Rfam assigns this 89-nucleotide RNA sequence from Noviluteimonas dokdonensis to the family "Glycine riboswitch aptamer". It scores 66 bits against the family's covariance model. The source organism's lineage runs through Bacteria, Pseudomonadota, Gammaproteobacteria, Noviluteimonas and Noviluteimonas dokdonensis. For this family Rfam cites "In Vivo Behavior of the Tandem Glycine Riboswitch in Bacillus subtilis" (Babina et al., MBio, 2017). Pairs were carried over by alignment from the consensus structure.

RNA sequence: ACCUGUCGCGUGGGAGAGACCGGCCGAGCGCCGGCGCCGAAGGAGCAACCGCCCCGGAAACUCUCAGGCAAAAGGACCUCGCGGCAGAC
Numbered sequence: 001a002c003c004u005g006u007c008g009c010g011u012g013g014g015a016g017a018g019a020c021c022g023g024c025c026g027a028g029c030g031c032c033g034g035c036g037c038c039g040a041a042g043g044a045g046c047a048a049c050c051g052c053c054c055c056g057g058a059a060a061c062u063c064u065c066a067g068g069c070a071a072a073a074g075g076a077c078c079u080c081g082c083g084g085c086a087g088a089c
Stems, first nucleotide, its partner, number of pairs: 006084005012078002020034004036069003039065002043063003049057002